[Rfam]
RNA sequence: AGAAUUAAAUAAGCGCCAGGACUACAUGAUGUGUAGUUGACGAGGAGAGGGUUUAUCGAAGUGUUCGGCGGAUGCCCUCCGGUUGGAGCAUGACAACCGUUAAACUUCUGUGAAAAACAUGGAGGCAACUCUAUGCACAAAAGCAGAAGUACCAUGCCUU
Dot-bracket structure: ...................((((((((...))))))))........(((((....((((.....))))......)))))((((((........))))))....(((((((.......(((((((....)))))))........)))))))..........
The record is a 160-nucleotide RNA from Halalkalibacter suaedae, which matches "glmS glucosamine-6-phosphate activated ribozyme aptamer" in Rfam.
About the family: This entry contains a glucosamine-6-phosphate activated ribozyme that is found in the mRNA for GlmS. GlmS is an enzyme that uses fructose-6-phosphate and glutamine to generate glucosamine-6-phosphate.